[Rfam]
RNA sequence: CUGCGAAUAUUCUCACUGUUCUGAUUUGUAAUUAUCAGAGUAGGCUAUACAUUUGCUUUCUUAAGACCAUGCAUGUGUCCUCAGACCUAGUGCUUUCCUUAGGCCUGGUUUUGUAAAUGCUGGUGAUAAAC
Numbered sequence: 001c002u003g004c005g006a007a008u009a010u011u012c013u014c015a016c017u018g019u020u021c022u023g024a025u026u027u028g029u030a031a032u033u034a035u036c037a038g039a040g041u042a043g044g045c046u047a048u049a050c051a052u053u054u055g056c057u058u059u060c061u062u063a064a065g066a067c068c069a070u071g072c073a074u075g076u077g078u079c080c081u082c083a084g085a086c087c088u089a090g091u092g093c094u095u096u097c098c099u100u101a102g103g104c105c106u107g108g109u110u111u112u113g114u115a116a117a118u119g120c121u122g123g124u125g126a127u128a129a130a131c
Stems, first nucleotide, its partner, number of pairs: 003056003016043010066124004071120002081108004086103005

This 131-nucleotide sequence from Myotis davidii belongs to the Rfam family "Small nucleolar RNA SNORA72". The match comes from Rfam's covariance-model search (130 bits). U72 is a member of the H/ACA class of snoRNAs. The snoRNA gene is located in intron 4 of the ribosomal L30 protein gene in human, mouse and chicken.